[Rfam]
RNA sequence: CUUUAAAAAUCUGGAUCAAGCUGAAAAUUGAAACGACACACUGUUUAAGUGUGUUCGAGUCUCUCAAAUUUUCGCGACACGAUGGUGUUUUACGAAACAUCUUCGG
Numbered sequence: 001c002u003u004u005a006a007a008a009a010u011c012u013g014g015a016u017c018a019a020g021c022u023g024a025a026a027a028u029u030g031a032a033a034c035g036a037c038a039c040a041c042u043g044u045u046u047a048a049g050u051g052u053g054u055u056c057g058a059g060u061c062u063c064u065c066a067a068a069u070u071u072u073c074g075c076g077a078c079a080c081g082a083u084g085g086u087g088u089u090u091u092a093c094g095a096a097a098c099a100u101c102u103u104c105g106g
Stems, first nucleotide, its partner, number of pairs: 020075002023073007034057003038054004044048001080105003084101004
RNA: Salmonella enterica Typhi npcRNA 44
Organism: Klebsiella variicola